[Rfam]
RNA sequence: CGAGAGAACUCUCGUUAAGGAACUCGGCAAAAUGACCCCGUAACUUCGGGAGAAGGGGUGCUGGUCGCAAGGCCAGCCGCAGUGAAUAGGCCCAGGCGACUGUUUAUCAAAAACACAGGUUUCUGCAAAAUCGUAAGAUGAAGUAUAGGGGCUGACGCCUGCCCGGUGCUGGAAGGUUAAAAGGAAGGGUUAGCUUCGGCGAAGCUCUGAAUUGAAGCCCCAGUAAACGGCGGCCGUAACUAUAACGGUCCUAAGGUAGCGAAAUUCCUUGUCGGGUAAGUUCCGACCCGCACGAAAGGCGUAACGAUCUGGGCGCUGUCUCAACGAGAGACUCG
Numbered sequence: 001c002g003a004g005a006g007a008a009c010u011c012u013c014g015u016u017a018a019g020g021a022a023c024u025c026g027g028c029a030a031a032a033u034g035a036c037c038c039c040g041u042a043a044c045u046u047c048g049g050g051a052g053a054a055g056g057g058g059u060g061c062u063g064g065u066c067g068c069a070a071g072g073c074c075a076g077c078c079g080c081a082g083u084g085a086a087u088a089g090g091c092c093c094a095g096g097c098g099a100c101u102g103u104u105u106a107u108c109a110a111a112a113a114c115a116c117a118g119g120u121u122u123c124u125g126c127a128a129a130a131u132c133g134u135a136a137g138a139u140g141a142a143g144u145a146u147a148g149g150g151g152c153u154g155a156c157g158c159c160u161g162c163c164c165g166g167u168g169c170u171g172g173a174a175g176g177u178u179a180a181a182a183g184g185a186a187g188g189g190u191u192a193g194c195u196u197c198g199g200c201g202a203a204g205c206u207c208u209g210a211a212u213u214g215a216a217g218c219c220c221c222a223g224u225a226a227a228c229g230g231c232g233g234c235c236g237u238a239a240c241u242a243u244a245a246c247g248g249u250c251c252u253a254a255g256g257u258a259g260c261g262a263a264a265u266u267c268c269u270u271g272u273c274g275g276g277u278a279a280g281u282u283c284c285g286a287c288c289c290g291c292a293c294g295a296a297a298g299g300c301g302u303a304a305c306g307a308u309c310u311g312g313g314c315g316c317u318g319u320c321u322c323a324a325c326g327a328g329a330g331a332c333u334c335g
Base pairs, nucleotide, nucleotide: 001335002334003333004332009330010329011328012327013326014325015324016323018321019320020319035059036058037057038056039055044049060077061076062075063074064073065072066071078082090314091313092312093311094310095309096308097306098305101115102114103113118153119152120151121150122149123148124147125146126143130139131138132137156301157300158299159298161231162230163229166228167227168224169223170222171221172220175219176218177217181213182212186208187207188206189205190204193200194199232250233249234248235247236246237245251255261288271287272286273285274284275283276282
Rfam assigns this 335-nucleotide part of an RNA from Limosilactobacillus frumenti to the family "Bacterial large subunit ribosomal RNA". The source organism's lineage runs through Bacteria, Bacillota, Bacilli, Lactobacillaceae and Limosilactobacillus frumenti. It scores 2912 bits against the family's covariance model. The base pairs follow the family's consensus structure, which is taken from published work. Rfam links the family to the GO terms structural constituent of ribosome and ribosome.